RNA sequence: UAAAUCUCUCGGUAGGUGAGGUUACUUAAAGGAUAUGGAUUGAUGCCGUGAAGAGCUGGAGACAGUUCCAACUGGUUAACAGGUUUCGCCGUAUUAAGGCGUAACCCAUUUCAAUUUCACCGCCUUUAAGUGCUAAAACUCGUACGAGCAGUAUC
Numbered sequence: 001u002a003a004a005u006c007u008c009u010c011g012g013u014a015g016g017u018g019a020g021g022u023u024a025c026u027u028a029a030a031g032g033a034u035a036u037g038g039a040u041u042g043a044u045g046c047c048g049u050g051a052a053g054a055g056c057u058g059g060a061g062a063c064a065g066u067u068c069c070a071a072c073u074g075g076u077u078a079a080c081a082g083g084u085u086u087c088g089c090c091g092u093a094u095u096a097a098g099g100c101g102u103a104a105c106c107c108a109u110u111u112c113a114a115u116u117u118c119a120c121c122g123c124c125u126u127u128a129a130g131u132g133c134u135a136a137a138a139c140u141c142g143u144a145c146g147a148g149c150a151g152u153a154u155c
Stems, first nucleotide, its partner, number of pairs: 008151002011145001013097001015140003020134003025130008039115005046074001048072002055066004082106004088100003
RNA: M-box riboswitch aptamer (ykoK leader)